[Rfam]
About this RNA
Shown here is a 61-nucleotide RNA sequence from Psychroflexus salis, a member of the family "Fluoride riboswitch aptamer (crcB RNA motif)". Pairs were carried over by alignment from the consensus structure, which is taken from published work. The organism belongs to Psychroflexus, within Bacteria. Rfam 15.1 lists 2,293 matches to the family in 1,982 species.
RNA sequence: UUUAAAAUAGGCAAUGAUGUCUGCCUCGAACCGCCCAAACGCUAAUGACGUCUACUUAACA
Numbered sequence: 001u002u003u004a005a006a007a008u009a010g011g012c013a014a015u016g017a018u019g020u021c022u023g024c025c026u027c028g029a030a031c032c033g034c035c036c037a038a039a040c041g042c043u044a045a046u047g048a049c050g051u052c053u054a055c056u057u058a059a060c061a
Base pairs, nucleotide, nucleotide: 010025011024012023013022016052017051018050019049020048021047033042034041
Dot-bracket structure: .........[[[[..((((((]]]].......((......))....)))))).........